[Rfam]
RNA sequence: GCUUCCGAGGAGCGCUGCAAGGUCGGGCCGUAUGGCUCAAACCCUAGGCUCGGAACCUGUUUUCAACGGCGCUCACCUACC
Numbered sequence: 001g002c003u004u005c006c007g008a009g010g011a012g013c014g015c016u017g018c019a020a021g022g023u024c025g026g027g028c029c030g031u032a033u034g035g036c037u038c039a040a041a042c043c044c045u046a047g048g049c050u051c052g053g054a055a056c057c058u059g060u061u062u063u064c065a066a067c068g069g070c071g072c073u074c075a076c077c078u079a080c081c
Stems, first nucleotide, its partner, number of pairs: 003055006021043003026038001

Rfam assigns this 81-nucleotide RNA sequence from Rugosibacter aromaticivorans to the family "SAH (S-adenosyl-L-homocysteine) riboswitch aptamer". For this family Rfam cites "Riboswitches that sense S-adenosylhomocysteine and activate genes involved in coenzyme recycling" (Wang et al., Mol Cell, 2008). Pairs were carried over by alignment from the consensus structure, which is taken from published work.